[Rfam]
The family of this 96-nucleotide sequence from Lachnotalea sp. AF33-28 is "Purine riboswitch aptamer". Its Rfam clan is "Purine riboswitches". The organism belongs to Lachnotalea, within Bacteria. The family's consensus secondary structure is taken from published work.
RNA sequence: UUAUACAUUGUGGAAAGAGCUUAUAUAAAUUCAUAAUCGGUUGAAUGUUUCUACCAACUACCAUAAUAGUUGACUAUAAGCGGUUCCCUUUGACAG
Numbered sequence: 001u002u003a004u005a006c007a008u009u010g011u012g013g014a015a016a017g018a019g020c021u022u023a024u025a026u027a028a029a030u031u032c033a034u035a036a037u038c039g040g041u042u043g044a045a046u047g048u049u050u051c052u053a054c055c056a057a058c059u060a061c062c063a064u065a066a067u068a069g070u071u072g073a074c075u076a077u078a079a080g081c082g083g084u085u086c087c088c089u090u091u092g093a094c095a096g
Base pairs, nucleotide, nucleotide: 019081020080021079022078023077024076025075029046030045031044032043033042055072056071057070058069059068060067